[Rfam]
RNA sequence: GCUUUUGUUAGAACCUUUUGAAUCAAGUAGUGGAGCGAUUCAAAAGGUUCUAACAUA
Numbered sequence: 001g002c003u004u005u006u007g008u009u010a011g012a013a014c015c016u017u018u019u020g021a022a023u024c025a026a027g028u029a030g031u032g033g034a035g036c037g038a039u040u041c042a043a044a045a046g047g048u049u050c051u052a053a054c055a056u057a
Stems, first nucleotide, its partner, number of pairs: 007054018
Shown here is a 57-nucleotide RNA sequence from Gossypium arboreum, a member of the family "Plastid-ccsA-ndhD-1 3UTR RNA". By type it is a cis-regulatory element. A search with the family's covariance model found it, with a score of 53 bits. The family is grouped with related families in Rfam's "Plastid-ccsA_ndhD 3UTR RNA clan". Rfam 15.1 lists 1,322 matches to the family in 557 species. The organism belongs to Gossypium, within Eukaryota. Rfam's curators write: Plastid-ccsA-ndhD-1 is a non-coding RNA (ncRNA) recognised in plastids. It was found in the three prime untranslated region (3UTR) of ccsA and ndhD genes, its 3UTR location suggests a role in transcript maturation.